[Rfam]
RNA sequence: AUCUGGAGAGAGACGCUGUAUUACGAUACGGCGUCCACCGAAGGGGAUAUCCGUUAUCGCGCCAUGCAUUGAGCAAUGGCUCCAGCGGAUCAAGCUCUCAGGUACCGAGACAGAU
Numbered sequence: 001a002u003c004u005g006g007a008g009a010g011a012g013a014c015g016c017u018g019u020a021u022u023a024c025g026a027u028a029c030g031g032c033g034u035c036c037a038c039c040g041a042a043g044g045g046g047a048u049a050u051c052c053g054u055u056a057u058c059g060c061g062c063c064a065u066g067c068a069u070u071g072a073g074c075a076a077u078g079g080c081u082c083c084a085g086c087g088g089a090u091c092a093a094g095c096u097c098u099c100a101g102g103u104a105c106c107g108a109g110a111c112a113g114a115u
Base pairs, nucleotide, nucleotide: 001115002114003113004112005111012035013034014033015032016031017030018029019028037103038102039101040099041098044097045096046095
Annotation: A member of the RNA family "Glycine riboswitch aptamer" from Bradyrhizobium sp. LTSP885, 115 nucleotides long.